[Rfam]
RNA sequence: CAUGGACCUGGGGGCAGCGCCCGGGUGGCUGUUCCGGCCGCCGAUCCGCCGGAUAAUC
Numbered sequence: 001c002a003u004g005g006a007c008c009u010g011g012g013g014g015c016a017g018c019g020c021c022c023g024g025g026u027g028g029c030u031g032u033u034c035c036g037g038c039c040g041c042c043g044a045u046c047c048g049c050c051g052g053a054u055a056a057u058c
Base pairs, nucleotide, nucleotide: 006026007025008024009023010022011021013018033053034052035051036050037049038048
The record is a 58-nucleotide RNA sequence from Phaeovulum veldkampii, which matches "sul1 RNA" in Rfam. The match comes from Rfam's covariance-model search (65 bits). The base pairs follow the family's consensus structure, which is taken from published work. The source organism's lineage runs through Bacteria, Pseudomonadati, Alphaproteobacteria, Phaeovulum and Phaeovulum veldkampii.